[Rfam]
RNA sequence: AUAAUCUGUUAAUGAAGAGAGCUAUCCGUCGACAGUAUUGCCACUAAACACUGUCAUGGAGUUGCUCUCUUUAUGAACGGAUGC
Dot-bracket structure: .............(((((.(((..((((..(((.((.............)).))).))))...))).)))))............
Rfam assigns this 84-nucleotide RNA sequence from Manduca sexta to the family "mir-46/mir-47/mir-281 microRNA precursor family".